[Rfam]
RNA sequence: AGCGGCGUGCAAGUGGGCCGAGGGUCGACUCCGACGCCGCAGGGGUCCCAGCCCGGCCCCGGAAAGCUGUGA
Numbered sequence: 001a002g003c004g005g006c007g008u009g010c011a012a013g014u015g016g017g018c019c020g021a022g023g024g025u026c027g028a029c030u031c032c033g034a035c036g037c038c039g040c041a042g043g044g045g046u047c048c049c050a051g052c053c054c055g056g057c058c059c060c061g062g063a064a065a066g067c068u069g070u071g072a
Stems, first nucleotide, its partner, number of pairs: 003039006042060006

Background:
Shown here is a 72-nucleotide RNA sequence from Mycolicibacterium austroafricanum, a member of the family "hya RNA". Taxonomically the source falls in Mycolicibacterium austroafricanum (Bacteria, Bacillati, Actinomycetota, Mycobacteriaceae). The sequence is in the family's curated seed alignment. The family's consensus secondary structure is taken from published work.